Rfam assigns this 305-nucleotide RNA from Pachyramphus minor to the family "Small Cajal body-specific RNA 7". A reference for the family is Darzacq et al. (2002), "Cajal body-specific small nuclear RNAs: a novel class of 2'-O-methylation and pseudouridylation guide RNAs", EMBO J. Rfam links the family to the GO terms nucleolus and RNA processing.
[Rfam]
Nucleotides: 305
Stems, first nucleotide, its partner, number of pairs: 002303003173203005179194003183190002
Number, partner (000 for none) and nucleotide at each position: 001000u002303g003302g004301a005000a006000g007000u008000g009000a010000u011000g012000a013000a014000a015000u016000a017000g018000a019000g020000a021000u022000a023000a024000u025000u026000g027000g028000a029000u030000g031000u032000c033000u034000u035000u036000g037000a038000a039000u040000g041000g042000a043000g044000u045000g046000u047000g048000u049000g050000u051000g052000a053000g054000a055000a056000a057000u058000g059000g060000a061000a062000u063000u064000u065000a066000a067000a068000g069000c070000a071000a072000g073000u074000c075000a076000g077000c078000u079000g080000g081000g082000g083000g084000u085000g086000g087000g088000g089000a090000g091000g092000g093000g094000g095000a096000u097000g098000u099000g100000u101000g102000u103000g104000u105000g106000g107000a108000u109000g110000a111000a112000u113000g114000g115000a116000a117000a118000a119000g120000g121000c122000u123000u124000u125000a126000a127000a128000u129000g130000g131000g132000g133000g134000c135000a136000c137000u138000g139000a140000c141000u142000u143000c144000a145000g146000u147000g148000c149000u150000g151000a152000c153000u154000c155000c156000g157000g158000a159000g160000u161000g162000c163000a164000u165000c166000u167000g168000a169000g170000g171000c172000g173203u174202g175201u176200u177199g178000g179194g180193c181192a182000c183190u184189u185000g186000u187000g188000g189184g190183g191000c192181u193180g194179c195000u196000c197000u198000g199177c200176a201175a202174c203173a204000c205000u206000g207000c208000c209000g210000a211000u212000g213000a214000u215000u216000a217000a218000a219000a220000c221000c222000c223000a224000a225000a226000a227000c228000a229000a230000g231000c232000c233000c234000a235000c236000c237000a238000g239000g240000a241000g242000a243000a244000g245000c246000c247000c248000a249000g250000g251000c252000a253000u254000c255000c256000u257000a258000a259000a260000u261000c262000u263000c264000u265000a266000a267000c268000a269000g270000g271000g272000u273000c274000a275000c276000u277000g278000a279000u280000g281000a282000a283000a284000g285000u286000g287000g288000u289000c290000c291000u292000g293000u294000g295000a296000u297000c298000u299000g300000a301004u302003c303002u304000c305000a